RNA sequence: UCCCCGCUUCUCCUCCCUGAGCGGGUGCCAAUCGCGACAGCGAGAGGCUUCUGGCCCCAGCCCCAUGCUGGGGCUUUUUUUU
Numbered sequence: 001u002c003c004c005c006g007c008u009u010c011u012c013c014u015c016c017c018u019g020a021g022c023g024g025g026u027g028c029c030a031a032u033c034g035c036g037a038c039a040g041c042g043a044g045a046g047g048c049u050u051c052u053g054g055c056c057c058c059a060g061c062c063c064c065a066u067g068c069u070g071g072g073g074c075u076u077u078u079u080u081u082u
Stems, first nucleotide, its partner, number of pairs: 003025006027048003032043003054074008
Description
Shown here is an 82-nucleotide RNA sequence from Limnohabitans radicicola, a member of the family "Burkholderia RNA 7 (anti-hemB)". Pairs were carried over by alignment from the consensus structure, which is taken from published work. Gene Ontology terms of the family: bacterial biofilm matrix and protein binding. Rfam describes the family as follows. This RNA motif was identified by computational search in b-proteobacteria Burkholderia. Co-purified with Hfq, expression confirmed by Northern blot. The match comes from Rfam's covariance-model search (71 bits). Taxonomically the source falls in Limnohabitans (Bacteria, Pseudomonadati, Betaproteobacteria, Burkholderiales).